Rfam assigns this 108-nucleotide RNA sequence from Sinomonas sp. to the family "TPP riboswitch aptamer (THI element)". NCBI's taxonomy places the organism under Bacteria, Bacillati, Actinomycetota, Micrococcaceae, Sinomonas. Rfam describes the family as follows. Vitamin B(1) in its active form thiamin pyrophosphate (TPP) is an essential coenzyme that is synthesised by coupling of pyrimidine and thiazole moieties in bacteria.
RNA sequence: UUUCGUCCACACGGGUGCCCUCGCAGGGGCUGAGAUCAGGCUGACGCGGCCUGCGACCGUCGAACCUGUCCGGGUCAUGCCGGCGUAGGAAGUGAGAACUCCUUUGGA
Number, nucleotide and partner (000 for none) at each position: 001u000002u000003u000004c000005g000006u096007c000008c094009a093010c092011a060012c059013g058014g057015g000016u000017g030018c029019c028020c027021u026022c000023g000024c000025a000026g021027g020028g019029g018030c017031u000032g000033a000034g000035a000036u000037c053038a052039g051040g050041c049042u048043g047044a000045c000046g000047c043048g042049g041050c040051c039052u038053g037054c000055g000056a000057c014058c013059g012060u011061c000062g000063a000064a000065c089066c088067u087068g086069u000070c083071c082072g081073g080074g000075u000076c000077a000078u000079g000080c073081c072082g071083g070084c000085g000086u068087a067088g066089g065090a000091a000092g010093u009094g008095a000096g006097a000098a000099c000100u000101c000102c000103u000104u000105u000106g000107g000108a000